[Rfam]
This 73-nucleotide RNA from Oribacterium parvum belongs to the Rfam family "tRNA". It scores 73 bits against the family's covariance model.
RNA sequence: GCCACAAUAGCACAGUUGGUAGUGCAUCUGAUUCGUAAUCAGAAGGUCACCGGUUCAAGUCCGGUUUGUGGCC
Numbered sequence: 001g002c003c004a005c006a007a008u009a010g011c012a013c014a015g016u017u018g019g020u021a022g023u024g025c026a027u028c029u030g031a032u033u034c035g036u037a038a039u040c041a042g043a044a045g046g047u048c049a050c051c052g053g054u055u056c057a058a059g060u061c062c063g064g065u066u067u068g069u070g071g072c073c
Base pairs, nucleotide, nucleotide: 001072002071003070004069005068006067007066010025011024012023013022027043028042029041030040031039049065050064051063052062053061